Soft rot Enterobacteriaceae Rev 39 5'UTR: a 302-nucleotide RNA from Tenebrionibacter intestinalis.
Its family is annotated with cellular response to starvation in the Gene Ontology.
The family's consensus secondary structure was predicted with RNAfold.
A search with the family's covariance model found it, with a score of 132 bits.
About the family: From bacteria cultured under starvation conditions.
[Rfam]
RNA sequence: AAAACUUGUCUUUGCUUUACUCACUGUGAUAACUCUGUAGUCAUUACUUCGAACGAGACGAAAGCACGAAUUUCAAAUGAAAGCCCUUCUACUAGUGAUUAGCCUGGUUGUGAUUAGCGUGGUGGUGAUUAUUAAUCCACCGUGUGGGGCUGCGCUAAGGAGAGGAAAGGCUUAAAAAUCAAGUCUGAAUCGGAAAAAACCCCCGCACCGAAAGGUCCGGGGGUUUUUUGUUAGGCCGCGUACAUUGAAUCAAGGAGCAGAAUAUGUAUUGCAGAACAAAAUGCUGUUUUUGCCCGGCUGAG
Numbered sequence: 001a002a003a004a005c006u007u008g009u010c011u012u013u014g015c016u017u018u019a020c021u022c023a024c025u026g027u028g029a030u031a032a033c034u035c036u037g038u039a040g041u042c043a044u045u046a047c048u049u050c051g052a053a054c055g056a057g058a059c060g061a062a063a064g065c066a067c068g069a070a071u072u073u074c075a076a077a078u079g080a081a082a083g084c085c086c087u088u089c090u091a092c093u094a095g096u097g098a099u100u101a102g103c104c105u106g107g108u109u110g111u112g113a114u115u116a117g118c119g120u121g122g123u124g125g126u127g128a129u130u131a132u133u134a135a136u137c138c139a140c141c142g143u144g145u146g147g148g149g150c151u152g153c154g155c156u157a158a159g160g161a162g163a164g165g166a167a168a169g170g171c172u173u174a175a176a177a178a179u180c181a182a183g184u185c186u187g188a189a190u191c192g193g194a195a196a197a198a199a200c201c202c203c204c205g206c207a208c209c210g211a212a213a214g215g216u217c218c219g220g221g222g223g224u225u226u227u228u229u230g231u232u233a234g235g236c237c238g239c240g241u242a243c244a245u246u247g248a249a250u251c252a253a254g255g256a257g258c259a260g261a262a263u264a265u266g267u268a269u270u271g272c273a274g275a276a277c278a279a280a281a282u283g284c285u286g287u288u289u290u291u292g293c294c295c296g297g298c299u300g301a302g
Stems, first nucleotide, its partner, number of pairs: 006032005012026001037074001039072003044066001048062001049058002085255003091250001093247002097243001098241002102236006109119003121141005127136001129134001143160001145158001147156002162191002169185004194229012207216003256288005262282001265276001